[Rfam]
Nucleotides: 190
Base pairs, nucleotide, nucleotide: 004176005175006174007173008172009171010170011169014166015165016164017163018162019161020160049131050130052128053127054126058122059121060120061119066114
Number, partner (000 for none) and nucleotide at each position: 001000a002000a003000g004176g005175a006174g007173c008172u009171c010170c011169u012000u013000u014166c015165a016164g017163u018162c019161c020160a021000a022000u023000a024000u025000g026000g027000a028000g029000g030000g031000c032000u033000u034000a035000g036000a037000a038000g039000c040000g041000g042000c043000a044000a045000a046000g047000a048000g049131c050130u051000g052128c053127c054126a055000u056000c057000u058122c059121a060120u061119g062000c063000a064000u065000u066114a067000a068000g069000g070000c071000a072000a073000u074000a075000c076000u077000u078000g079000a080000c081000a082000a083000g084000u085000u086000u087000u088000u089000c090000a091000c092000a093000g094000u095000g096000a097000a098000a099000a100000u101000c102000u103000c104000a105000a106000g107000u108000u109000u110000g111000g112000c113000c114066u115000g116000g117000u118000g119061c120060a121059u122058g123000g124000u125000g126054u127053g128052g129000g130050a131049g132000c133000a134000a135000c136000u137000c138000c139000u140000u141000c142000c143000c144000u145000c146000c147000u148000u149000c150000c151000c152000c153000c154000a155000c156000c157000c158000a159000u160020u161019g162018g163017a164016c165015u166014g167000a168000a169011g170010g171009g172008a173007g174006c175005u176004c177000c178000u179000u180000c181000u182000u183000u184000c185000a186000u187000u188000u189000u190000g
Rfam assigns this 190-nucleotide sequence from Ricinus communis to the family "MIR159 microRNA precursor family".